[Rfam]
RNA sequence: CAGCGUUCUCAGGGCGGGGUGGAAGUCCCCACCGGCGGUAUCCGCAAGCGAUUGCGGGAGCCCGCGAGCGCCCGGAGCCGCUCUUGCGGCUCCGGGGUCAGCAGACCUGGUGCGAUGCCAGGGCCGACGGUCACAGUCCGGAUGAAAGAGACACGCGU
Numbered sequence: 001c002a003g004c005g006u007u008c009u010c011a012g013g014g015c016g017g018g019g020u021g022g023a024a025g026u027c028c029c030c031a032c033c034g035g036c037g038g039u040a041u042c043c044g045c046a047a048g049c050g051a052u053u054g055c056g057g058g059a060g061c062c063c064g065c066g067a068g069c070g071c072c073c074g075g076a077g078c079c080g081c082u083c084u085u086g087c088g089g090c091u092c093c094g095g096g097g098u099c100a101g102c103a104g105a106c107c108u109g110g111u112g113c114g115a116u117g118c119c120a121g122g123g124c125c126g127a128c129g130g131u132c133a134c135a136g137u138c139c140g141g142a143u144g145a146a147a148g149a150g151a152c153a154c155g156c157g158u
Stems, first nucleotide, its partner, number of pairs: 003156004007151004017029003031137002033126002035065004060124002068102002106122005128140003
Dot-bracket structure: ..((((((((......(((.......))).[[((((((.....................[[))))..((...............................))...(((((.......)))))]])).(((.....]]))).......)))).))))..
FMN riboswitch aptamer (RFN element): a 158-nucleotide RNA from Caldimonas caldifontis. The organism belongs to Caldimonas, within Bacteria.